[Rfam]
RNA sequence: UAUCCUUUGUGUCCGGCAAAAACAUCCCUUCAGCCGGAGCAUAGAGAUUA
Numbered sequence: 001u002a003u004c005c006u007u008u009g010u011g012u013c014c015g016g017c018a019a020a021a022a023c024a025u026c027c028c029u030u031c032a033g034c035c036g037g038a039g040c041a042u043a044g045a046g047a048u049u050a
Base pairs, nucleotide, nucleotide: 013037014036015035016034017033
PyrC leader: a 50-nucleotide sequence from Escherichia coli. The organism belongs to Escherichia coli O121:H19, within Bacteria. The family's consensus secondary structure is taken from published work.